The record is a 105-nucleotide sequence from Lacimicrobium alkaliphilum, which matches "t44 RNA" in Rfam.
Lineage of the source: Bacteria > Gammaproteobacteria > Alteromonadales > Alteromonadaceae > Lacimicrobium.
From the family's description: This family consists of a number of bacterial RNA genes of between 135 and 170 bases in length. The t44 gene has been identified in several species of enteric bacteria but homologs have also been identified in Pseudomonas and Coxiella species. The t44 gene is found between the map and rpsB genes in all species in the full alignment apart from Shigella flexneri. The function of this RNA is unknown.

RNA sequence: AUUAACAUUAUUUAAUCACACACAUAUAUCGACACAGUUUUCGGGGUGUCUGGGAGUGCUUCAGGUACUGUUCAGAUCGAGAACUGGGAUAUAUGGAGGCCUAAC
Numbered sequence: 001a002u003u004a005a006c007a008u009u010a011u012u013u014a015a016u017c018a019c020a021c022a023c024a025u026a027u028a029u030c031g032a033c034a035c036a037g038u039u040u041u042c043g044g045g046g047u048g049u050c051u052g053g054g055a056g057u058g059c060u061u062c063a064g065g066u067a068c069u070g071u072u073c074a075g076a077u078c079g080a081g082a083a084c085u086g087g088g089a090u091a092u093a094u095g096g097a098g099g100c101c102u103a104a105c
Stems, first nucleotide, its partner, number of pairs: 023095008035086009048077007
Dot-bracket structure: ......................((((((((....(((((((((....(((((((................)))))))))))))))).))))))))..........